Rfam assigns this 106-nucleotide RNA sequence from Amycolatopsis mediterranei to the family "TPP riboswitch aptamer (THI element)". A search with the family's covariance model found it, with a score of 71 bits. Lineage of the source: Bacteria > Actinomycetota > Pseudonocardiales > Pseudonocardiaceae > Amycolatopsis mediterranei. Pairs were carried over by alignment from the consensus structure, which is taken from published work.
RNA sequence: ACGUGUCCGCACGGGAGCCCGAGGCACGGGCUGAGAGGGAGCUGCCGCUCCGACCGUGGAACCUGAUCCGGGUCAUGCCGGCGCAGGGAGCGUGAUCCCAUGACGA
Dot-bracket structure: .....(.(((((((..(((((.....)))))......(((((....)))))..))))....((((..((((......))))..))))..))).)............